Shown here is a 157-nucleotide RNA sequence from Streptomyces sp. ISL-66, a member of the family "SAM riboswitch aptamer (S box leader)". The match comes from Rfam's covariance-model search (75 bits). NCBI's taxonomy places the organism under Bacteria, Actinomycetota, Actinomycetes, Streptomycetaceae, Streptomyces.
RNA sequence: CGCUCAUCCAGAGGGGCAGAGGGACACGGCCCGUUGAAGCCCCGGCAACCCUCCAGUCGGUUCUCGCGAUCGCCCAUGCGGCAGAUCAGUGGGGUCCCCGGCUAGGGAAGGUGCCAAUUCCGUCUCAUGGCGACGUUCGUCAUGGGGAAGAUGAGGA
Numbered sequence: 001c002g003c004u005c006a007u008c009c010a011g012a013g014g015g016g017c018a019g020a021g022g023g024a025c026a027c028g029g030c031c032c033g034u035u036g037a038a039g040c041c042c043c044g045g046c047a048a049c050c051c052u053c054c055a056g057u058c059g060g061u062u063c064u065c066g067c068g069a070u071c072g073c074c075c076a077u078g079c080g081g082c083a084g085a086u087c088a089g090u091g092g093g094g095u096c097c098c099c100g101g102c103u104a105g106g107g108a109a110g111g112u113g114c115c116a117a118u119u120c121c122g123u124c125u126c127a128u129g130g131c132g133a134c135g136u137u138c139g140u141c142a143u144g145g146g147g148a149a150g151a152u153g154a155g156g157a
Base pairs, nucleotide, nucleotide: 003155004154005153006152007151008150013043014042015041016040017039021032022031023030026123027122028121029120044115045114046113047112049111050110051107052106053105119149124146125145126144127143128142129141130140131139132138